[Rfam]
RNA sequence: CCCAGGAUUAAAAUCCCGGGCUAACAUUAUCAGCCCUUUCAGGGCU
Numbered sequence: 001c002c003c004a005g006g007a008u009u010a011a012a013a014u015c016c017c018g019g020g021c022u023a024a025c026a027u028u029a030u031c032a033g034c035c036c037u038u039u040c041a042g043g044g045c046u
Stems, first nucleotide, its partner, number of pairs: 001020003005016004033045005
A member of the RNA family "Acido-Lenti-1 RNA" from Flavipsychrobacter stenotrophus, 46 nucleotides long. The source organism's lineage runs through Bacteria, Pseudomonadati, Chitinophagales, Chitinophagaceae and Flavipsychrobacter. It scores 37 bits against the family's covariance model.